[Rfam]
RNA sequence: GAGACACUCCUAUGGAGCUAGACUUGCUUCAGUAGGUUUUUGAUGCUCCCUGAGUCUGCCCCUUGAGUGUGUCCCU
Number, nucleotide and partner (000 for none) at each position: 001g075002a000003g073004a072005c071006a070007c069008u000009c067010c000011u065012a064013u000014g062015g061016a000017g059018c058019u000020a000021g056022a055023c054024u000025u000026g000027c000028u000029u053030c052031a051032g050033u000034a000035g047036g046037u000038u043039u000040u000041u000042g000043a038044u000045g000046c036047u035048c000049c000050c032051u031052g030053a029054g023055u022056c021057u000058g018059c017060c000061c015062c014063u000064u012065g011066a000067g009068u000069g007070u006071g005072u004073c003074c000075c001076u000
Overview
This 76-nucleotide sequence from Myotis myotis belongs to the Rfam family "mir-9229 microRNA precursor family". The base pairs follow the family's consensus structure, which was predicted with RNAalifold. The organism belongs to Myotis, within Eukaryota. A search with the family's covariance model found it, with a score of 73 bits. Gene Ontology terms of the family: RISC complex and miRNA-mediated post-transcriptional gene silencing. Rfam 15.1 lists 27,225 matches to the family in 9 species.